Record summary: A member of the RNA family "Small nucleolar RNA Z199" from Panicum virgatum, 87 nucleotides long. The match comes from Rfam's covariance-model search (81 bits). NCBI's taxonomy places the organism under Eukaryota, Viridiplantae, Streptophytina, Tracheophyta, Panicum sect. Hiantes. Rfam classes the family as a C/D-box small nucleolar RNA. For this family Rfam cites "The high diversity of snoRNAs in plants: identification and comparative study of 120 snoRNA genes from Oryza sativa" (Chen et al., Nucleic Acids Res, 2003).

RNA sequence: UUGUCAAAUGAUGAGUAUUAAAAUAACUGCAACAAUAUGAUGGAGUUAUACUCCUUUGAUUCCCAAGUAUUUAAGUCUCUGAUGAUA
Numbered sequence: 001u002u003g004u005c006a007a008a009u010g011a012u013g014a015g016u017a018u019u020a021a022a023a024u025a026a027c028u029g030c031a032a033c034a035a036u037a038u039g040a041u042g043g044a045g046u047u048a049u050a051c052u053c054c055u056u057u058g059a060u061u062c063c064c065a066a067g068u069a070u071u072u073a074a075g076u077c078u079c080u081g082a083u084g085a086u087a
Stems, first nucleotide, its partner, number of pairs: 001087001004085003042054004
Dot-bracket structure: (..(((...................................((((.....))))............................))).)